[Rfam]
The family of this 77-nucleotide sequence from Hymenochirus boettgeri is "Small nucleolar RNA SNORD79". The source organism's lineage runs through Eukaryota, Eumetazoa, Vertebrata, Sarcopterygii and Hymenochirus. Its family is annotated with RNA processing and nucleolus in the Gene Ontology. Its Rfam clan is "SNORD74 clan". A search with the family's covariance model found it, with a score of 60 bits. snoRNA U79 or Z22 is found in intron 7 of the gas5 gene in humans and is also present in mice. Rfam classes the family as a C/D-box small nucleolar RNA. The literature on the family includes a 1998 paper in Mol Cell Biol by Smith and Steitz, "Classification of gas5 as a multi-small-nucleolar-RNA (snoRNA) host gene and a member of the 5'-terminal oligopyrimidine gene family reveals common features of snoRNA host genes".

RNA sequence: UGCUGUGCAUGAUGAUUUUUAGUUUAUCAAUGGGAAUCUCUCUGAACCACAUGAUGAGAUUUCUUACUGAAACAGCA
Numbered sequence: 001u002g003c004u005g006u007g008c009a010u011g012a013u014g015a016u017u018u019u020u021a022g023u024u025u026a027u028c029a030a031u032g033g034g035a036a037u038c039u040c041u042c043u044g045a046a047c048c049a050c051a052u053g054a055u056g057a058g059a060u061u062u063c064u065u066a067c068u069g070a071a072a073c074a075g076c077a
Stems, first nucleotide, its partner, number of pairs: 001077006